[Rfam]
RNA sequence: CCUGAUCUAUGAUGAAUUUAAAACAAGAGGACUGUUGGAUGAAACUCGCGGAUAUGGGACUGAGGUCAGCU
Numbered sequence: 001c002c003u004g005a006u007c008u009a010u011g012a013u014g015a016a017u018u019u020a021a022a023a024c025a026a027g028a029g030g031a032c033u034g035u036u037g038g039a040u041g042a043a044a045c046u047c048g049c050g051g052a053u054a055u056g057g058g059a060c061u062g063a064g065g066u067c068a069g070c071u
Stems, first nucleotide, its partner, number of pairs: 002069004
RNA: Small nucleolar RNA SNORD99